[Rfam]
RNA: tRNA
RNA sequence: GCCCCCAUAGCUCAUUGGUAGAGCACUUCCUUGGUAAGGAAGAGGUAGUGAGUUCAAUCCUCACUGGGGCUC
Numbered sequence: 001g002c003c004c005c006c007a008u009a010g011c012u013c014a015u016u017g018g019u020a021g022a023g024c025a026c027u028u029c030c031u032u033g034g035u036a037a038g039g040a041a042g043a044g045g046u047a048g049u050g051a052g053u054u055c056a057a058u059c060c061u062c063a064c065u066g067g068g069g070c071u072c
Base pairs, nucleotide, nucleotide: 001071003069004068005067006066007065010024011023012022013021026042027041028040029039030038048064049063050062051061052060